[Rfam]
RNA sequence: CAUAAACAAAGACCUCCUAACUUUGUUUAGAAUCCAAACUUUUUUCAUAAUAUCUCCCUAUAAGAAGUCACCCAUUGGUGGCUUUUUU
Numbered sequence: 001c002a003u004a005a006a007c008a009a010a011g012a013c014c015u016c017c018u019a020a021c022u023u024u025g026u027u028u029a030g031a032a033u034c035c036a037a038a039c040u041u042u043u044u045u046c047a048u049a050a051u052a053u054c055u056c057c058c059u060a061u062a063a064g065a066a067g068u069c070a071c072c073c074a075u076u077g078g079u080g081g082c083u084u085u086u087u088u
Stems, first nucleotide, its partner, number of pairs: 004028008064085009